[Rfam]
RNA sequence: AAGUGAGGACGACCUCACCGCUCUACUUCAUCAGGGACGGCCCU
Numbered sequence: 001a002a003g004u005g006a007g008g009a010c011g012a013c014c015u016c017a018c019c020g021c022u023c024u025a026c027u028u029c030a031u032c033a034g035g036g037a038c039g040g041c042c043c044u
Stems, first nucleotide, its partner, number of pairs: 003018006033044004
RNA: Guanidine-II riboswitch aptamer (mini-ykkC)